[Rfam]
Nucleotides: 056
Stems, first nucleotide, its partner, number of pairs: 001018007
Number, partner (000 for none) and nucleotide at each position: 001018c002017c003016c004015c005014g006013c007012a008000u009000c010000a011000c012007u013006g014005c015004g016003g017002g018001g019000c020000c021000u022000c023000u024000a025000u026000u027000u028000c029000g030000c031000u032000u033000u034000u035000g036000u037000a038000a039000c040000c041000a042000a043000g044000g045000g046000g047000u048000c049000u050000g051000c052000u053000c054000g055000u056000g